[Rfam]
RNA sequence: UAUAAAGUCAUCAUGUUUUUUUCAUCAGUUUCUUGUUCGUUUCAAAAUUAUGAUUUUUGUUUACUUACACUCAUAAUCUUGAAACGAACAAAAAACUGAUGGAAAAACAUGAGGACUUUAUA
Number, nucleotide and partner (000 for none) at each position: 001u122002a121003u120004a119005a118006a117007g116008u115009c114010a000011u112012c111013a110014u109015g108016u107017u106018u105019u104020u103021u000022u000023c101024a100025u099026c098027a000028g096029u095030u094031u093032c000033u091034u090035g089036u088037u087038c086039g085040u084041u083042u082043c081044a080045a079046a000047a077048u076049u075050a074051u073052g072053a071054u000055u000056u000057u000058u069059g068060u067061u000062u000063a000064c000065u000066u000067a060068c059069a058070c000071u053072c052073a051074u050075a049076a048077u047078c000079u045080u044081g043082a042083a041084a040085c039086g038087a037088a036089c035090a034091a033092a000093a031094a030095a029096c028097u000098g026099a025100u024101g023102g000103a020104a019105a018106a017107a016108c015109a014110u013111g012112a011113g000114g009115a008116c007117u006118u005119u004120a003121u002122a001

A member of the RNA family "MIR837 microRNA precursor family" from Arabidopsis thaliana, 122 nucleotides long. Pairs were carried over by alignment from the consensus structure, which was predicted with RNAalifold.